[Rfam]
RNA sequence: AGCGAUCGAGGAGGCGAAGAAGUGUUAUCCUUUAACUGGUCACCAAUAGGGUAGCAGGGAGCCAAUGGUGAACCCGGCCGCGAGUAAU
Numbered sequence: 001a002g003c004g005a006u007c008g009a010g011g012a013g014g015c016g017a018a019g020a021a022g023u024g025u026u027a028u029c030c031u032u033u034a035a036c037u038g039g040u041c042a043c044c045a046a047u048a049g050g051g052u053a054g055c056a057g058g059g060a061g062c063c064a065a066u067g068g069u070g071a072a073c074c075c076g077g078c079c080g081c082g083a084g085u086a087a088u
Stems, first nucleotide, its partner, number of pairs: 001088001004085001006083003010079002013063003023056007038075002040071005
RNA: c-di-GMP-II-GAG riboswitch aptamer